[Rfam]
RNA sequence: UGAAUGGUAUCUGCAACGAACCAUAUCAAUUCAUCACUGCUAGAGCAAACCUAUCGCUAGGCUUAGUUGCCGUCCAUGAAAUAACAGUACAUUGUCAUAUUCGCUUGGAUCUAUAAGACCGGGACGAGACG
Number, nucleotide and partner (000 for none) at each position: 001u028002g027003a026004a024005u023006g022007g021008u020009a000010u019011c018012u000013g000014c000015a000016a000017c000018g011019a010020a008021c007022c006023a005024u004025a000026u003027c002028a001029a000030u000031u000032c000033a000034u000035c000036a000037c000038u000039g000040c000041u000042a000043g000044a000045g000046c000047a000048a000049a000050c000051c000052u000053a000054u000055c000056g000057c000058u000059a000060g000061g000062c000063u000064u000065a000066g000067u000068u000069g000070c000071c000072g000073u000074c000075c000076a000077u000078g000079a000080a000081a000082u000083a000084a000085c000086a000087g000088u000089a000090c000091a000092u000093u000094g000095u000096c000097a000098u000099a000100u000101u127102c126103g125104c123105u122106u121107g120108g119109a000110u118111c117112u000113a000114u000115a000116a000117g111118a110119c108120c107121g106122g105123g104124a000125c103126g102127a101128g000129a000130c000131g000
RNA: pan motif